[Rfam]
RNA sequence: UUCUUAUCCAGAGAGGUGGAGGGACUGGCCCGAUGAAACCCGGCAACCUUUAAGCAACGGCUUAAAAAGGUGCCAAUUCCUGCUAAGCAAUGCUUAGAGAAGAUAAGGA
Numbered sequence: 001u002u003c004u005u006a007u008c009c010a011g012a013g014a015g016g017u018g019g020a021g022g023g024a025c026u027g028g029c030c031c032g033a034u035g036a037a038a039c040c041c042g043g044c045a046a047c048c049u050u051u052a053a054g055c056a057a058c059g060g061c062u063u064a065a066a067a068a069g070g071u072g073c074c075a076a077u078u079c080c081u082g083c084u085a086a087g088c089a090a091u092g093c094u095u096a097g098a099g100a101a102g103a104u105a106a107g108g109a
Stems, first nucleotide, its partner, number of pairs: 001109008013041001015040003021031003025082001027080002042074004047070002049066004078101001083097006